SAM riboswitch aptamer (S box leader): a 104-nucleotide RNA sequence from Planococcus salinus.

RNA sequence: UUCUUAUCAAGAGAGACGGAGGGAAUUGGCCCUUUGAUGUCUCAGCAACCAGCCGACAGGCCACGGUGCUAAUUCCAAAAGGCCAAACGCCUGGCAGAUGAGAA
Numbered sequence: 001u002u003c004u005u006a007u008c009a010a011g012a013g014a015g016a017c018g019g020a021g022g023g024a025a026u027u028g029g030c031c032c033u034u035u036g037a038u039g040u041c042u043c044a045g046c047a048a049c050c051a052g053c054c055g056a057c058a059g060g061c062c063a064c065g066g067u068g069c070u071a072a073u074u075c076c077a078a079a080a081g082g083c084c085a086a087a088c089g090c091c092u093g094g095c096a097g098a099u100g101a102g103a104a
Stems, first nucleotide, its partner, number of pairs: 001104008013043005021032003026078004044070004049066002052061003074096001080092004
Taxonomically the source falls in Planococcus (Bacteria, Bacilli, Caryophanales, Caryophanaceae).